[Rfam]
RNA sequence: GUCGAGCUUCGUAACGCGGGCUUGUAAUCCAAGUGGAGACUACGAGUUGGUGGGACAUUGGGCCGAUCUCUUUGGGCUGGGUUUGGAUGGGCUAUCUUCUGGCCUGCCCAUUCCAAGUCGGGAGUUUAGUGUUUGGACUCGAGCGAAGGCUUGUGGUUUAGACACUCUUAGAGCGGAGGAGACUGCGUGAGGCUGGUUUCACAGAGCAGCGUCCACCUCCCGGUCUUGACGGUGGAAGGAUAACGGGCCGUGGCCUUCUGAGCCCACUAUGACCCAAUAAGCCGGCUCCCAAUUUGGACCUCAACUUU
Numbered sequence: 001g002u003c004g005a006g007c008u009u010c011g012u013a014a015c016g017c018g019g020g021c022u023u024g025u026a027a028u029c030c031a032a033g034u035g036g037a038g039a040c041u042a043c044g045a046g047u048u049g050g051u052g053g054g055a056c057a058u059u060g061g062g063c064c065g066a067u068c069u070c071u072u073u074g075g076g077c078u079g080g081g082u083u084u085g086g087a088u089g090g091g092c093u094a095u096c097u098u099c100u101g102g103c104c105u106g107c108c109c110a111u112u113c114c115a116a117g118u119c120g121g122g123a124g125u126u127u128a129g130u131g132u133u134u135g136g137a138c139u140c141g142a143g144c145g146a147a148g149g150c151u152u153g154u155g156g157u158u159u160a161g162a163c164a165c166u167c168u169u170a171g172a173g174c175g176g177a178g179g180a181g182a183c184u185g186c187g188u189g190a191g192g193c194u195g196g197u198u199u200c201a202c203a204g205a206g207c208a209g210c211g212u213c214c215a216c217c218u219c220c221c222g223g224u225c226u227u228g229a230c231g232g233u234g235g236a237a238g239g240a241u242a243a244c245g246g247g248c249c250g251u252g253g254c255c256u257u258c259u260g261a262g263c264c265c266a267c268u269a270u271g272a273c274c275c276a277a278u279a280a281g282c283c284g285g286c287u288c289c290c291a292a293u294u295u296g297g298a299c300c301u302c303a304a305c306u307u308u
Stems, first nucleotide, its partner, number of pairs: 001040003004023006028037003044307007052300002056296002058292003061287005068281002072277002074274002077271001079265009089256003093253001100250007108239002111237005117230007125222001128166012140153005168173001175220005185212004193204003
Dot-bracket structure: (((((((((........))))))....(((....))))))...(((((((.((..((((((((((..((..((((.(.(((((((((.(((.(......(((((((.((.(((((.(((((((.(..(((((((((((((((((....))))).)))))))))))).(....).(((((.....((((....(((......)))....))))...))))).).)))))))..)))))))....)))))))..))))))))))))).....).)).))..)).)))))..)))..))..))))))))).